[Rfam]
RNA sequence: GCAGCACCGAUGAUGAGUUUACAAUGUACUAGGUUGAAUUCUGAUCGAUCUGAGCCUCUGUGGUUCGAACGAUGACCAACCAAGUGUUCCUCUCGAUUUGAGGCGAUGU
Numbered sequence: 001g002c003a004g005c006a007c008c009g010a011u012g013a014u015g016a017g018u019u020u021a022c023a024a025u026g027u028a029c030u031a032g033g034u035u036g037a038a039u040u041c042u043g044a045u046c047g048a049u050c051u052g053a054g055c056c057u058c059u060g061u062g063g064u065u066c067g068a069a070c071g072a073u074g075a076c077c078a079a080c081c082a083a084g085u086g087u088u089c090c091u092c093u094c095g096a097u098u099u100g101a102g103g104c105g106a107u108g109u
Stems, first nucleotide, its partner, number of pairs: 002108002005105001007103002
RNA: Small nucleolar RNA Z173
Organism: Oryza brachyantha